[Rfam]
RNA sequence: CCUGCAUCAACAUCCUAGCUACUUGGGAGGCUGAGGCCGGGGGAUCGCUUGAGCUCAGGAGUUCUGGGCUGCAGUGGGCUAUGCCGAUCGGGUGUCCGCACUAAGUUCGGCAUCAAUAUGGCGAUCCCUGGGAAGCUUCGGGUCACCAGGUUGCCUAAGGAGGGGUGAACCGGCCCAGGUCGGAAACGGAGCAGGUCAAAACUCCCGUGCCGAUCAGUAGUGGGAUCGCGCCUGUGAAUAGCCACUGCAGCGUAGCCUGGGCAAGACAGUGAGACACGGUCUCUU
Numbered sequence: 001c002c003u004g005c006a007u008c009a010a011c012a013u014c015c016u017a018g019c020u021a022c023u024u025g026g027g028a029g030g031c032u033g034a035g036g037c038c039g040g041g042g043g044a045u046c047g048c049u050u051g052a053g054c055u056c057a058g059g060a061g062u063u064c065u066g067g068g069c070u071g072c073a074g075u076g077g078g079c080u081a082u083g084c085c086g087a088u089c090g091g092g093u094g095u096c097c098g099c100a101c102u103a104a105g106u107u108c109g110g111c112a113u114c115a116a117u118a119u120g121g122c123g124a125u126c127c128c129u130g131g132g133a134a135g136c137u138u139c140g141g142g143u144c145a146c147c148a149g150g151u152u153g154c155c156u157a158a159g160g161a162g163g164g165g166u167g168a169a170c171c172g173g174c175c176c177a178g179g180u181c182g183g184a185a186a187c188g189g190a191g192c193a194g195g196u197c198a199a200a201a202c203u204c205c206c207g208u209g210c211c212g213a214u215c216a217g218u219a220g221u222g223g224g225a226u227c228g229c230g231c232c233u234g235u236g237a238a239u240a241g242c243c244a245c246u247g248c249a250g251c252g253u254a255g256c257c258u259g260g261g262c263a264a265g266a267c268a269g270u271g272a273g274a275c276a277c278g279g280u281c282u283c284u285u
Base pairs, nucleotide, nucleotide: 013028014027015026033283034282035281036280037279038278039277041275045272046271047270048269049268053262054261055260056259057258058257059256064255065254066253068251069250070249071248072247073246074245075244076243078242079241080240081239082238084236089234090233091232092231093230094229095228096224097223099222100221101220102219103218105215107213108212109211110210111209112208113207114153115152116151117150119148120147121146123144124143125142126141127140130137131136154160155159162205163204164203165202166201172197173196174195175194180189181188182187
A member of the RNA family "Metazoan signal recognition particle RNA" from Terrapene triunguis, 285 nucleotides long. The family's RNA type in Rfam is non-coding RNA gene. The family has 91 seed sequences and 383,523 matches in Rfam 15.1. A search with the family's covariance model found it, with a score of 233 bits. Taxonomically the source falls in Terrapene (Eukaryota, Testudinata, Testudinoidea, Emydidae).